[Rfam]
This 304-nucleotide RNA from Bos taurus belongs to the Rfam family "7SK RNA". From the family's description: 7SK was discovered as an abundant small nuclear RNA in the mid-70s but a possible function has only recently been suggested. Two independent studies have found that 7SK RNA binds the CDK9/cyclin T complex (known as elongation factor P-TEFb). P-TEFb activates transcription by phosphorylating the C-terminal domain of RNA polymerase II. This process is negatively regulated by the 7SK RNP. The secondary structure of 7SK RNA shown here was proposed by Wasserman and Steitz on the basis of chemical modification and enzymatic cleavage experiments. This family contains a number of annotated pseudogenes and 7SK derived repeats. The family is grouped with related families in Rfam's "7SK clan". The literature on the family includes a 2002 paper in Curr Biol by Blencowe, "Transcription: surprising role for an elusive small nuclear RNA".
RNA sequence: GGAUGUGAGGGCGAUAUGGUUGCGACAUCUGUCACCCCACUGAUCGCCAGGGUUGAUUCGGCUGAUCUGGCUGGCUAGGCAGGUGUCCCCUUCCUCCCUCACCGCUCCAUAUGCAUCCCUCCCGAACCUGCAUGCUCGGUCGAAGAGGAUGACCAUCCCCGAUAGAGGAGGACCGGUCUUCGGUCAAGGGUAUACGAGUAGCUGCGCUCCCCUGCUAGAACCUCUAAAAUAAUGUUUCUUUAGAAGAAAUUUGAGAAUUCUAUUUAUAAAUACUACAUUGCUAUUCUUAAGUACUAUGCUUUCA
Numbered sequence: 001g002g003a004u005g006u007g008a009g010g011g012c013g014a015u016a017u018g019g020u021u022g023c024g025a026c027a028u029c030u031g032u033c034a035c036c037c038c039a040c041u042g043a044u045c046g047c048c049a050g051g052g053u054u055g056a057u058u059c060g061g062c063u064g065a066u067c068u069g070g071c072u073g074g075c076u077a078g079g080c081a082g083g084u085g086u087c088c089c090c091u092u093c094c095u096c097c098c099u100c101a102c103c104g105c106u107c108c109a110u111a112u113g114c115a116u117c118c119c120u121c122c123c124g125a126a127c128c129u130g131c132a133u134g135c136u137c138g139g140u141c142g143a144a145g146a147g148g149a150u151g152a153c154c155a156u157c158c159c160c161g162a163u164a165g166a167g168g169a170g171g172a173c174c175g176g177u178c179u180u181c182g183g184u185c186a187a188g189g190g191u192a193u194a195c196g197a198g199u200a201g202c203u204g205c206g207c208u209c210c211c212c213u214g215c216u217a218g219a220a221c222c223u224c225u226a227a228a229a230u231a232a233u234g235u236u237u238c239u240u241u242a243g244a245a246g247a248a249a250u251u252u253g254a255g256a257a258u259u260c261u262a263u264u265u266a267u268a269a270a271u272a273c274u275a276c277a278u279u280g281c282u283a284u285u286c287u288u289a290a291g292u293a294c295u296a297u298g299c300u301u302u303c304a
Stems, first nucleotide, its partner, number of pairs: 001108003005102007013093002018090002024087010035074002037070003042067004046062003116171002118168004122139004128134001140162003147158003201264001203262001208257001210255001212253001214251001222246002225243001228241002232237001